[Rfam]
RNA: Plastid-psbA-4 3UTR RNA
RNA sequence: AAAACAAAGUAACAAUACCCUAUAUCUUGCUAAAACAAGAUACGGGGUAUUGCUACUUUGU
Numbered sequence: 001a002a003a004a005c006a007a008a009g010u011a012a013c014a015a016u017a018c019c020c021u022a023u024a025u026c027u028u029g030c031u032a033a034a035a036c037a038a039g040a041u042a043c044g045g046g047g048u049a050u051u052g053c054u055a056c057u058u059u060g061u
Stems, first nucleotide, its partner, number of pairs: 006059006013052005021044001024041006
Dot-bracket structure: .....((((((.(((((...(..((((((......))))))..)...))))).))))))..